Nucleotides: 079
Base pairs, nucleotide, nucleotide: 001077002076004074005073006072007071008070011067012066013065014064015063016062017061018060020058021057022056023055025053026052027051028050029049030048031047032045033044034043035042036041
Number, partner (000 for none) and nucleotide at each position: 001077u002076g003000c004074c005073a006072u007071g008070a009000u010000a011067u012066u013065g014064u015063g016062u017061c018060a019000a020058u021057a022056u023055g024000c025053g026052a027051u028050g029049a030048u031047g032045u033044g034043u035042g036041u037000g038000a039000u040000g041036g042035c043034a044033c045032a046000g047031c048030g049029u050028c051027a052026u053025c054000a055023c056022a057021u058020g059000g060018u061017g062016a063015c064014g065013c066012a067011a068000c069000a070008u071007c072006a073005u074004g075000a076002c077001g078000u079000a
mir-592 microRNA precursor family: a 79-nucleotide sequence from Eptesicus fuscus.
Rfam's curators put it in the seed alignment.
Lineage of the source: Eukaryota > Dipnotetrapodomorpha > Yangochiroptera > Vespertilionidae > Eptesicus.